RNA sequence: AAAGGAGCAAUAAUAAACCUCUUGAUAUAACAAGAGGUUUAUUAUUGCUCCUUUAUUU
Numbered sequence: 001a002a003a004g005g006a007g008c009a010a011u012a013a014u015a016a017a018c019c020u021c022u023u024g025a026u027a028u029a030a031c032a033a034g035a036g037g038u039u040u041a042u043u044a045u046u047g048c049u050c051c052u053u054u055a056u057u058u
Stems, first nucleotide, its partner, number of pairs: 001054014019036006
Dot-bracket structure: ((((((((((((((....((((((......))))))....))))))))))))))....

A member of the RNA family "Plastid-psbA-3 3UTR RNA", 58 nucleotides long. The family is grouped with related families in Rfam's "Plastid-psbA 3UTR RNA clan". From the family's description: Plastid psbA-3 is a non-coding RNA (ncRNA) present in plastids. It was identified in inverted repeat sequences in the 3 prime untranslate region (3UTR) of photosystem II quinone-binding protein (psbA).